[Rfam]
RNA sequence: CGCGCCGUCAUCGGGGAGUAGCCUCCCUUUGCCGUCCGCGGCGAAGGGGCCUGCGUCAACAUGCUUGGCCAGCCGGCCAUGGCGCAGGCAGUUCCGACCUGGCAAGACCUUUGACCAUGCCGCCUCCGGAUUGGCCGGGGAGGCGCAUGGUCAUCGGUUAUCUUCCGGCCAGGGAUCAUU
Numbered sequence: 001c002g003c004g005c006c007g008u009c010a011u012c013g014g015g016g017a018g019u020a021g022c023c024u025c026c027c028u029u030u031g032c033c034g035u036c037c038g039c040g041g042c043g044a045a046g047g048g049g050c051c052u053g054c055g056u057c058a059a060c061a062u063g064c065u066u067g068g069c070c071a072g073c074c075g076g077c078c079a080u081g082g083c084g085c086a087g088g089c090a091g092u093u094c095c096g097a098c099c100u101g102g103c104a105a106g107a108c109c110u111u112u113g114a115c116c117a118u119g120c121c122g123c124c125u126c127c128g129g130a131u132u133g134g135c136c137g138g139g140g141a142g143g144c145g146c147a148u149g150g151u152c153a154u155c156g157g158u159u160a161u162c163u164u165c166c167g168g169c170c171a172g173g174g175a176u177c178a179u180u
Stems, first nucleotide, its partner, number of pairs: 026047006049089010066079005090179001093175003
The record is a 180-nucleotide RNA from Thauera sinica, which matches "Manganese Mn2+ riboswitch aptamer (yybP-ykoY)" in Rfam. For this family Rfam cites "Novel small RNA-encoding genes in the intergenic regions of Escherichia coli" (Argaman et al., Curr Biol, 2001). Taxonomically the source falls in Thauera (Bacteria, Pseudomonadati, Betaproteobacteria, Zoogloeaceae).